[Rfam]
RNA sequence: UUUAUUGCCGAUGCAGCAUCAUCAAGAUUCUCAGUACUUAAUUCAAAGCCGAGCCUUGGCGUUGCAUUUGCAUGUGAAUCUUGAUGAUGCUACACCCGCAAACAA
Numbered sequence: 001u002u003u004a005u006u007g008c009c010g011a012u013g014c015a016g017c018a019u020c021a022u023c024a025a026g027a028u029u030c031u032c033a034g035u036a037c038u039u040a041a042u043u044c045a046a047a048g049c050c051g052a053g054c055c056u057u058g059g060c061g062u063u064g065c066a067u068u069u070g071c072a073u074g075u076g077a078a079u080c081u082u083g084a085u086g087a088u089g090c091u092a093c094a095c096c097c098g099c100a101a102a103c104a105a
Stems, first nucleotide, its partner, number of pairs: 010096001012094002015091016032074002
A member of the RNA family "mir-172 microRNA precursor family" from Rhamnella rubrinervis, 105 nucleotides long. From the family's description: mir-172 has been experimentally verified in Arabidopsis thaliana. The base pairs follow the family's consensus structure, which was predicted with PFOLD. For this family Rfam cites "CARPEL FACTORY, a Dicer homolog, and HEN1, a novel protein, act in microRNA metabolism in Arabidopsis thaliana" (Park et al., Curr Biol, 2002).